[Rfam]
RNA: Glycine riboswitch aptamer
Organism: Piscinibacter sp. HJYY11
Nucleotides: 090
Base pairs, nucleotide, nucleotide: 007084009082010081011080012079013078020034021033022032023031036070037069038068039066040065043064044063045062049057050056
Number, partner (000 for none) and nucleotide at each position: 001000u002000c003000c004000c005000c006000g007084u008000c009082g010081u011080c012079a013078g014000g015000a016000g017000a018000g019000a020034g021033c022032u023031u024000c025000c026000c027000c028000g029000u030000g031023a032022a033021g034020c035000c036070g037069c038068c039066g040065a041000a042000g043064g044063c045062g046000c047000a048000g049057g050056g051000c052000c053000c054000u055000g056050c057049u058000c059000g060000a061000a062045c063044g064043c065040u066039c067000a068038g069037g070036c071000a072000a073000a074000a075000g076000g077000a078013c079012u080011g081010a082009c083000a084007a085000a086000a087000c088000g089000c090000u